[Rfam]
RNA sequence: CGGUAUGAGUUGGACACGUGGUGCAGUGUGAUAGUGGAAUAAGCUGCAUCACGUGUGACCUCCGUACACCGU
Numbered sequence: 001c002g003g004u005a006u007g008a009g010u011u012g013g014a015c016a017c018g019u020g021g022u023g024c025a026g027u028g029u030g031a032u033a034g035u036g037g038a039a040u041a042a043g044c045u046g047c048a049u050c051a052c053g054u055g056u057g058a059c060c061u062c063c064g065u066a067c068a069c070c071g072u
Stems, first nucleotide, its partner, number of pairs: 003069002006066002009063001012060002015057001016054004021049005
Dot-bracket structure: ..((.((.(..((.(((((.(((((...................))))).))))..).))..).)).))...
Shown here is a 72-nucleotide sequence from Ornithorhynchus anatinus, a member of the family "mir-1421 microRNA precursor family".
Pairs were carried over by alignment from the consensus structure, which was predicted with RNAalifold.
The match comes from Rfam's covariance-model search (71 bits).
Lineage of the source: Eukaryota > Metazoa > Vertebrata > Prototheria > Ornithorhynchus.